[Rfam]
RNA: t44 RNA
RNA sequence: AUACUUUUUAUUUUAAAUCACACACAUAUCGACACAUUAACCGGGGUGCCCUCAAGCGGGUCGGUGAAUGGGAUAUGUGGAGGCCUAAC
Numbered sequence: 001a002u003a004c005u006u007u008u009u010a011u012u013u014u015a016a017a018u019c020a021c022a023c024a025c026a027u028a029u030c031g032a033c034a035c036a037u038u039a040a041c042c043g044g045g046g047u048g049c050c051c052u053c054a055a056g057c058g059g060g061u062c063g064g065u066g067a068a069u070g071g072g073a074u075a076u077g078u079g080g081a082g083g084c085c086u087a088a089c
Base pairs, nucleotide, nucleotide: 023079024078025077026076027075028074029073030072035070036069037068038067040065041064042063043062048061049060050059051058